[Rfam]
RNA sequence: CCCUGACUUCGACACGACACGAUAUCCUGCAGAGAUAUUGUGCGACCUGCAGUGUCAGUCGACGUCAGCG
Numbered sequence: 001c002c003c004u005g006a007c008u009u010c011g012a013c014a015c016g017a018c019a020c021g022a023u024a025u026c027c028u029g030c031a032g033a034g035a036u037a038u039u040g041u042g043c044g045a046c047c048u049g050c051a052g053u054g055u056c057a058g059u060c061g062a063c064g065u066c067a068g069c070g
Stems, first nucleotide, its partner, number of pairs: 001070001003068005009062005021039006044056003
RNA: bZIP non canonical Hac1/Xbp1 intron